[Rfam]
RNA sequence: AAUGACAGAGCGCCGAGCGGCCUUUCCUAAACCCGGUUACCAAAUGGUACGGGCAUGGGAGGGCAGCCGUGGUGAGUUAUCACCACCGGGUUGCAGCGAGAAAUCCUGUAGCCUCCCCUACCAAUUGGAAAGGUGUUCAAUGACAACAUUA
Numbered sequence: 001a002a003u004g005a006c007a008g009a010g011c012g013c014c015g016a017g018c019g020g021c022c023u024u025u026c027c028u029a030a031a032c033c034c035g036g037u038u039a040c041c042a043a044a045u046g047g048u049a050c051g052g053g054c055a056u057g058g059g060a061g062g063g064c065a066g067c068c069g070u071g072g073u074g075a076g077u078u079a080u081c082a083c084c085a086c087c088g089g090g091u092u093g094c095a096g097c098g099a100g101a102a103a104u105c106c107u108g109u110a111g112c113c114u115c116c117c118c119u120a121c122c123a124a125u126u127g128g129a130a131a132g133g134u135g136u137u138c139a140a141u142g143a144c145a146a147c148a149u150u151a
Stems, first nucleotide, its partner, number of pairs: 003145002006142001009137006017067002020064008032053003069083005088114009098105002115128002
Shown here is a 151-nucleotide RNA sequence from Parendozoicomonas haliclonae, a member of the family "Molybdenum/Tungsten riboswitch aptamer (Moco RNA motif)". Rfam links the family to the GO terms regulation of gene expression, tungstate binding and molybdenum ion binding.